[Rfam]
RNA sequence: GUUCAUCUUCAGGGCAGGGUGAAAGUCCCGACCGGCGGUAAUAGUCCGCGACCUCAACACUUUUGUUGAGUUGACUUGGUGCGAUCCCAAGACCGACAGUACAGUCUGGUAUAAAGAAGAUUGAC
Numbered sequence: 001g002u003u004c005a006u007c008u009u010c011a012g013g014g015c016a017g018g019g020u021g022a023a024a025g026u027c028c029c030g031a032c033c034g035g036c037g038g039u040a041a042u043a044g045u046c047c048g049c050g051a052c053c054u055c056a057a058c059a060c061u062u063u064u065g066u067u068g069a070g071u072u073g074a075c076u077u078g079g080u081g082c083g084a085u086c087c088c089a090a091g092a093c094c095g096a097c098a099g100u101a102c103a104g105u106c107u108g109g110u111a112u113a114a115a116g117a118a119g120a121u122u123g124a125c
Stems, first nucleotide, its partner, number of pairs: 003123001005121006017029003031105002033095002035049004044093002053070002075091005097108003